[Rfam]
RNA sequence: CGAGCGGGACGACCCGAUCGCUGACCGCCGUGAUGAGGACGACCUCG
Numbered sequence: 001c002g003a004g005c006g007g008g009a010c011g012a013c014c015c016g017a018u019c020g021c022u023g024a025c026c027g028c029c030g031u032g033a034u035g036a037g038g039a040c041g042a043c044c045u046c047g
Stems, first nucleotide, its partner, number of pairs: 001020003005016004034047005

Shown here is a 47-nucleotide sequence from Brevibacterium casei, a member of the family "Guanidine-II riboswitch aptamer (mini-ykkC)". Rfam's curators write: Simpler in structure and has fewer highly conserved nucleotide positions than the ykkC-yxkD leader. Despite this each of its two stem-loop structures directly bind free guanidine. Therefore, mini-ykkC RNA motif represents a distinct class of guanidine-sensing RNAs. A search with the family's covariance model found it, with a score of 34 bits.